The record is a 137-nucleotide RNA from Triplophysa rosa, which matches "Small nucleolar RNA SNORD94" in Rfam. For this family Rfam cites "Purified box C/D snoRNPs are able to reproduce site-specific 2'-O-methylation of target RNA in vitro" (Galardi et al., Mol Cell Biol, 2002). Gene Ontology terms of the family: RNA processing and nucleolus.

RNA sequence: UGGGCGAUGAUGAGUGGCGCAGGGGUACGUACCUCAGCUGAUGAUGGGAGCUGAGUGCUGACUGCUCAAAGAUCAGUGAGCAUGUGGUUCGCUGGUUGUAGAGCGUCAGUACGAAACAGACGCCUUGACUGAGCCCU
Numbered sequence: 001u002g003g004g005c006g007a008u009g010a011u012g013a014g015u016g017g018c019g020c021a022g023g024g025g026u027a028c029g030u031a032c033c034u035c036a037g038c039u040g041a042u043g044a045u046g047g048g049a050g051c052u053g054a055g056u057g058c059u060g061a062c063u064g065c066u067c068a069a070a071g072a073u074c075a076g077u078g079a080g081c082a083u084g085u086g087g088u089u090c091g092c093u094g095g096u097u098g099u100a101g102a103g104c105g106u107c108a109g110u111a112c113g114a115a116a117c118a119g120a121c122g123c124c125u126u127g128a129c130u131g132a133g134c135c136c137u
Stems, first nucleotide, its partner, number of pairs: 002136004